[Rfam]
mir-132 microRNA precursor family: a 79-nucleotide RNA sequence from Hymenochirus boettgeri.
The organism belongs to Hymenochirus, within Eukaryota.
RNA sequence: UGCCCGAGCGACCAUGGCUGUAGACUGUUACUAAAUAAAAACGACAGUAACAAUCUAAAGCCACGGUUGCCCUGGAGAC
Numbered sequence: 001u002g003c004c005c006g007a008g009c010g011a012c013c014a015u016g017g018c019u020g021u022a023g024a025c026u027g028u029u030a031c032u033a034a035a036u037a038a039a040a041a042c043g044a045c046a047g048u049a050a051c052a053a054u055c056u057a058a059a060g061c062c063a064c065g066g067u068u069g070c071c072c073u074g075g076a077g078a079c
Base pairs, nucleotide, nucleotide: 012066013065015063016062017061018060023055024054026052027051028050029049030048031047032046